[Rfam]
RNA sequence: CGGGAGAACCAUGGUUAAGGAACUCGGCAAAACCGCCCCGUAACUUCGGGAGAAGGGGUGCCGCCGCCGGUGGAGGGACUUGCUCCCCGAGCCGGAGGCGGCCACAGUGAAGAGGCCCAAACGACUGUUUAUCAAAAACACAGGACUCUGCUGAAGUCGUAAGACGACGUAUAGGGUCUGACGCCUGCCCGGUGCCGGAAGGUCACGAGGAGCCGUCAGCGCGAGCGAAGCGGCGAAUCCAAGCCCCGGUAAACGGCGGCCGUAACUAUAACGGUCCUAAGGUAGCGAAAUUCCUUGUCGGGUAAGUUCCGACCUGCACGAAAGGCGUAACGAUUUGGGCGCUGUCUCAACCAUGGACCCG
Numbered sequence: 001c002g003g004g005a006g007a008a009c010c011a012u013g014g015u016u017a018a019g020g021a022a023c024u025c026g027g028c029a030a031a032a033c034c035g036c037c038c039c040g041u042a043a044c045u046u047c048g049g050g051a052g053a054a055g056g057g058g059u060g061c062c063g064c065c066g067c068c069g070g071u072g073g074a075g076g077g078a079c080u081u082g083c084u085c086c087c088c089g090a091g092c093c094g095g096a097g098g099c100g101g102c103c104a105c106a107g108u109g110a111a112g113a114g115g116c117c118c119a120a121a122c123g124a125c126u127g128u129u130u131a132u133c134a135a136a137a138a139c140a141c142a143g144g145a146c147u148c149u150g151c152u153g154a155a156g157u158c159g160u161a162a163g164a165c166g167a168c169g170u171a172u173a174g175g176g177u178c179u180g181a182c183g184c185c186u187g188c189c190c191g192g193u194g195c196c197g198g199a200a201g202g203u204c205a206c207g208a209g210g211a212g213c214c215g216u217c218a219g220c221g222c223g224a225g226c227g228a229a230g231c232g233g234c235g236a237a238u239c240c241a242a243g244c245c246c247c248g249g250u251a252a253a254c255g256g257c258g259g260c261c262g263u264a265a266c267u268a269u270a271a272c273g274g275u276c277c278u279a280a281g282g283u284a285g286c287g288a289a290a291u292u293c294c295u296u297g298u299c300g301g302g303u304a305a306g307u308u309c310c311g312a313c314c315u316g317c318a319c320g321a322a323a324g325g326c327g328u329a330a331c332g333a334u335u336u337g338g339g340c341g342c343u344g345u346c347u348c349a350a351c352c353a354u355g356g357a358c359c360c361g
Base pairs, nucleotide, nucleotide: 001361002360003359004358009356010355011354012353013352014351015350016349018347019346020345035059036058037057038056039055044049060102061101062100063099064098065097067095068094069093070092071091103107115340116339117338118337119336120335121334122332123331126140127139128138143179144178145177146176147175148174149173150172151169156165157164158163182327183326184325185324187257188256189255192254193253194250195249196248197247198246201245202244203243207239208238212234213233214232215231216230219226220225258276259275260274261273262272263271277281287314297313298312299311300310301309302308
Dot-bracket structure: ((((....((((((((.(((..............(((((....(....).....)))))((((((.(((((...................))))).))))))(...).......(((((((((..(((.........)))..(((((((((....(((....)))...)..))))))))..((((.(((..(((((((..(((...((...(((((..((....))...)))))...))...))))))))..)))))((((((.......))))))(...).....(.........((((((.....))))))).........))))...)).)))))))....))).)))))))).))))

Rfam assigns this 361-nucleotide part of an RNA from Olsenella sp. oral taxon 809 to the family "Bacterial large subunit ribosomal RNA". The source organism's lineage runs through Bacteria, Actinomycetota, Atopobiaceae, Olsenella and Olsenella sp. oral taxon 809. A search with the family's covariance model found it, with a score of 2810 bits.